A member of the RNA family "Small Cajal body specific RNA 1" from Electrophorus electricus, 163 nucleotides long. Rfam links the family to the GO terms nucleolus, RNA processing and Cajal body. The base pairs follow the family's consensus structure, which was predicted with RNAalifold. It is annotated as a small Cajal body RNA. The family has 29 seed sequences and 715 matches in Rfam 15.1. Rfam's curators write: scaRNAs are a specific class of small nuclear RNAs which localise to the Cajal bodies and guide the modification of RNA polymerase II transcribed spliceosomal RNAs U1, U2, U4, U5 and U12. ACA35 belong to the H/ACA box class of guide RNAs as it has the predicted hairpin-hinge-hairpin-tail structure, conserved H/ACA-box motifs and is found associated with GAR1. It scores 72 bits against the family's covariance model.
RNA sequence: AUGCACUAGAUACUAACCUGACUGUCAGCUGCCCAGUCGUUUUUGUACUGGUGCACUUCAGUGGCUGUCAGGUCCAGAAUGGUGCUAUAGGAGACAUAAGCCCCUGAGAUUUAAGCUCUGAGUGGGAAGUCAUUUACUCAGGUGUUAUGACUCAGGGACACAU
Numbered sequence: 001a002u003g004c005a006c007u008a009g010a011u012a013c014u015a016a017c018c019u020g021a022c023u024g025u026c027a028g029c030u031g032c033c034c035a036g037u038c039g040u041u042u043u044u045g046u047a048c049u050g051g052u053g054c055a056c057u058u059c060a061g062u063g064g065c066u067g068u069c070a071g072g073u074c075c076a077g078a079a080u081g082g083u084g085c086u087a088u089a090g091g092a093g094a095c096a097u098a099a100g101c102c103c104c105u106g107a108g109a110u111u112u113a114a115g116c117u118c119u120g121a122g123u124g125g126g127a128a129g130u131c132a133u134u135u136a137c138u139c140a141g142g143u144g145u146u147a148u149g150a151c152u153c154a155g156g157g158a159c160a161c162a163u
Base pairs, nucleotide, nucleotide: 003085004084005083006082007081008080016073017072018071020069021068022067024065025064026063027058028057030055031054032053033051035049036048037047038045101157102156103155120139121138122137123136124135125134142153144151145150